[Rfam]
Description: The family of this 68-nucleotide RNA from Anguilla anguilla is "mir-24 microRNA precursor family". Its family is annotated with miRNA-mediated post-transcriptional gene silencing and RISC complex in the Gene Ontology. Rfam's curators write: This family represents the microRNA (miRNA) mir-24 family. miRNAs are transcribed as ~70nt precursors (modelled here) and subsequently processed by the Dicer enzyme to give a ~22nt product. In this case the mature sequence comes from the 3' arm of the precursor.
RNA sequence: AUCUCCCGUGCCUACUGAGCUGACAGCAGUUUUACUGGAACACUGGCUCAGUUCAGCAGGAACAGGAG
Number, nucleotide and partner (000 for none) at each position: 001a000002u000003c068004u067005c066006c065007c000008g063009u062010g000011c060012c059013u058014a000015c056016u055017g054018a053019g052020c051021u050022g049023a048024c000025a000026g000027c045028a044029g043030u042031u000032u000033u000034a000035c000036u000037g000038g000039a000040a000041c000042a030043c029044u028045g027046g000047c000048u023049c022050a021051g020052u019053u018054c017055a016056g015057c000058a013059g012060g011061a000062a009063c008064a000065g006066g005067a004068g003

Notes: The base pairs follow the family's consensus structure, which was predicted with RNAalifold. NCBI's taxonomy places the organism under Eukaryota, Deuterostomia, Euteleostomi, Neopterygii, Anguilla. On this family, see Ambros, Cell 2001: "microRNAs: tiny regulators with great potential".